[Rfam]
RNA: S15-Flavobacteria ribosomal protein leader
RNA sequence: UAUAUUUGCGCCUCUGUUUAUAACAGAUAUAAAUUAUACAUAAUAAUUAUUUAAAACAAUGUUUGAAUG
Numbered sequence: 001u002a003u004a005u006u007u008g009c010g011c012c013u014c015u016g017u018u019u020a021u022a023a024c025a026g027a028u029a030u031a032a033a034u035u036a037u038a039c040a041u042a043a044u045a046a047u048u049a050u051u052u053a054a055a056a057c058a059a060u061g062u063u064u065g066a067a068u069g
Stems, first nucleotide, its partner, number of pairs: 016034005